[Rfam]
RNA sequence: CAUCCAUUGCAAACUGCUCUCAAACCAAGACCUACAGGCAGUAUAAUACUUCGUCUUUUAUCCAGUAGCGAGGGGUUACUGGAAAUAAGUUUCGCA
Numbered sequence: 001c002a003u004c005c006a007u008u009g010c011a012a013a014c015u016g017c018u019c020u021c022a023a024a025c026c027a028a029g030a031c032c033u034a035c036a037g038g039c040a041g042u043a044u045a046a047u048a049c050u051u052c053g054u055c056u057u058u059u060a061u062c063c064a065g066u067a068g069c070g071a072g073g074g075g076u077u078a079c080u081g082g083a084a085a086u087a088a089g090u091u092u093c094g095c096a
Stems, first nucleotide, its partner, number of pairs: 014041005020036001027057005061083007
RNA: PhotoRC-II RNA